Description
The record is a 109-nucleotide RNA from Propithecus coquereli, which matches "Y RNA" in Rfam. Pairs were carried over by alignment from the consensus structure, which is taken from published work. Rfam's curators write: Y RNAs are components of the Ro ribonucleoprotein particle (Ro RNP), in association with Ro60 and La proteins. The Y RNAs and Ro60 and La proteins are well conserved, but the function of the Ro RNP is not known. A reference for the family is Teunissen et al. (2000), "Conserved features of Y RNAs: a comparison of experimentally derived secondary structures", Nucleic Acids Res. A search with the family's covariance model found it, with a score of 66 bits. NCBI's taxonomy places the organism under Eukaryota, Craniata, Sarcopterygii, Amniota, Propithecus.
RNA sequence: GGCUGGUCCCAAGGUAGUGAGUAAUCUCAGUUGAUCAUUUGCAGUUACAGAUCAAACUCCUUGUUCUGCUCUUUCCCCCCUUUUCACUACUGCACUUGACUAGUCUUUA
Dot-bracket structure: ((((((((..(..((((((((...................(.((.....................)).).............))))))...))..).))))))))....